RNA sequence: UGUCAGCUGUGAUGAUGAUGACUGUUGUCUUCCUCCUGAAGCUAAAGCUGAGGGUUUUUCUGUCACUAUCUCAUCUGAGCUGUUA
Number, nucleotide and partner (000 for none) at each position: 001u000002g084003u000004c082005a081006g080007c079008u000009g000010u000011g000012a000013u000014g000015a000016u000017g000018a000019u000020g000021a000022c000023u000024g000025u000026u000027g000028u000029c000030u000031u000032c000033c000034u000035c000036c000037u000038g000039a000040a000041g000042c000043u000044a000045a000046a000047g000048c000049u000050g000051a000052g000053g000054g000055u000056u000057u000058u000059u000060c000061u000062g000063u000064c000065a000066c000067u000068a000069u000070c000071u000072c000073a000074u000075c000076u000077g000078a000079g007080c006081u005082g004083u000084u002085a000
RNA: Small nucleolar RNA SNORD11B